[Rfam]
Nucleotides: 124
Base pairs, nucleotide, nucleotide: 008078009077010076011075012074014026015025016024017023028049029048030047031046032045033044034043035042036041050073051072052071053070054069055068056067095122096121097120098119100118101117102116104113105112106111
Number, partner (000 for none) and nucleotide at each position: 001000a002000a003000a004000a005000a006000g007000g008078g009077u010076g011075c012074u013000g014026g015025u016024c017023a018000a019000c020000g021000u022000g023017u024016g025015g026014c027000g028049c029048a030047u031046g032045a033044g034043g035042c036041u037000g038000c039000a040000u041036a042035g043034c044033u045032u046031c047030a048029u049028g050073g051072a052071g053070u054069a055068u056067g057000g058000u059000u060000a061000u062000c063000a064000a065000g066000a067056c068055a069054u070053a071052c072051u073050c074012a075011g076010c077009a078008c079000a080000u081000a082000a083000u084000a085000u086000u087000u088000c089000c090000g091000a092000a093000c094000g095122g096121g097120g098119c099000a100118g101117c102116u103000a104113g105112g106111c107000c108000a109000c110000a111106g112105c113104c114000a115000a116102a117101g118100c119098g120097c121096c122095c123000c124000a
This 124-nucleotide RNA from Notodromas monacha belongs to the Rfam family "U11 spliceosomal RNA". The family's consensus secondary structure is taken from published work. Lineage of the source: Eukaryota > Mandibulata > Podocopida > Cypridocopina > Notodromas.